Rfam assigns this 47-nucleotide sequence from Ziziphus jujuba to the family "Plastid-rpl16 group II-D1 intron". For this family Rfam cites "Retrograde signaling in plants: A critical review focusing on the GUN pathway and beyond" (Richter et al., Plant Commun, 2023). Pairs were carried over by alignment from the consensus structure, which was predicted with LocARNA.
RNA sequence: AAGAGCCCCAAGCCAAUAAAUACUGAAAGGAUUGACUUGAGAACAAA
Numbered sequence: 001a002a003g004a005g006c007c008c009c010a011a012g013c014c015a016a017u018a019a020a021u022a023c024u025g026a027a028a029g030g031a032u033u034g035a036c037u038u039g040a041g042a043a044c045a046a047a
Stems, first nucleotide, its partner, number of pairs: 007041001010038003014034004
About the family: Plastid-rpl16 is a non-coding RNA (ncRNA) recognised in plastids.
Rfam links the family to the GO term Group II intron splicing.
It scores 56 bits against the family's covariance model.
Lineage of the source: Eukaryota > Streptophyta > Pentapetalae > Rosales > Ziziphus jujuba.